[Rfam]
RNA sequence: AGCCUCAUUCUAGAUGAAAAUGGACAUAGUUGAUCAUGAUGACUAGAAAUUGUUAAUGUGGAUAAACUGAGAUACAGUGAAUUUACUGCAGUGGUAUCAAUGAGACCGCUAACAGUU
Numbered sequence: 001a002g003c004c005u006c007a008u009u010c011u012a013g014a015u016g017a018a019a020a021u022g023g024a025c026a027u028a029g030u031u032g033a034u035c036a037u038g039a040u041g042a043c044u045a046g047a048a049a050u051u052g053u054u055a056a057u058g059u060g061g062a063u064a065a066a067c068u069g070a071g072a073u074a075c076a077g078u079g080a081a082u083u084u085a086c087u088g089c090a091g092u093g094g095u096a097u098c099a100a101u102g103a104g105a106c107c108g109c110u111a112a113c114a115g116u117u
Base pairs, nucleotide, nucleotide: 003061004060006058007057008056021045022044023043025041026040027039074110077107084096085095086094087093088092
The record is a 117-nucleotide RNA from Trichechus manatus, which matches "Small nucleolar RNA SNORA1" in Rfam. It is annotated as an H/ACA-box small nucleolar RNA. From the family's description: ACA1 is a member of the H/ACA class of snoRNA that guide the sites of modification of uridines to pseudouridines.